The record is a 171-nucleotide RNA sequence from Glycine soja, which matches "MIR2119 microRNA precursor family" in Rfam. Rfam links the family to the GO terms miRNA-mediated post-transcriptional gene silencing and RISC complex. Taxonomically the source falls in Glycine subgen. Soja (Eukaryota, rosids, fabids, Papilionoideae). The match comes from Rfam's covariance-model search (74 bits).
RNA sequence: AUCCACUUAUAUUUACACAAUGAUGUUAUUCUUACACGCCAUUUUCUAAACUUUUCCCCUACAACUCCCUUUGAUUGAAAAGUAGAGAAAUCCACUUUUUUUUUUCUAUUCUCUUUUUUCUCCAAUAAAAGAGAGGUGUAGAGGAAAUUAAAAAUAUAGAAAAUGAAGUGU
Numbered sequence: 001a002u003c004c005a006c007u008u009a010u011a012u013u014u015a016c017a018c019a020a021u022g023a024u025g026u027u028a029u030u031c032u033u034a035c036a037c038g039c040c041a042u043u044u045u046c047u048a049a050a051c052u053u054u055u056c057c058c059c060u061a062c063a064a065c066u067c068c069c070u071u072u073g074a075u076u077g078a079a080a081a082g083u084a085g086a087g088a089a090a091u092c093c094a095c096u097u098u099u100u101u102u103u104u105u106c107u108a109u110u111c112u113c114u115u116u117u118u119u120c121u122c123c124a125a126u127a128a129a130a131g132a133g134a135g136g137u138g139u140a141g142a143g144g145a146a147a148u149u150a151a152a153a154a155u156a157u158a159g160a161a162a163a164u165g166a167a168g169u170g171u
Stems, first nucleotide, its partner, number of pairs: 054146004059141005065135003069131004074126003077121001079119002084114006